Rfam assigns this 67-nucleotide sequence from Pipistrellus kuhlii to the family "mir-9256 microRNA precursor family". Its family is annotated with miRNA-mediated post-transcriptional gene silencing and RISC complex in the Gene Ontology. The organism belongs to Pipistrellus, within Eukaryota.
RNA sequence: UGAUACACUGAGUGGCCAGAUUAUUAUGCUCUCUGAAAAUAUAAUAAUCUGGCCAUUCAGUGUGUGU
Numbered sequence: 001u002g003a004u005a006c007a008c009u010g011a012g013u014g015g016c017c018a019g020a021u022u023a024u025u026a027u028g029c030u031c032u033c034u035g036a037a038a039a040u041a042u043a044a045u046a047a048u049c050u051g052g053c054c055a056u057u058c059a060g061u062g063u064g065u066g067u
Stems, first nucleotide, its partner, number of pairs: 004064014019049010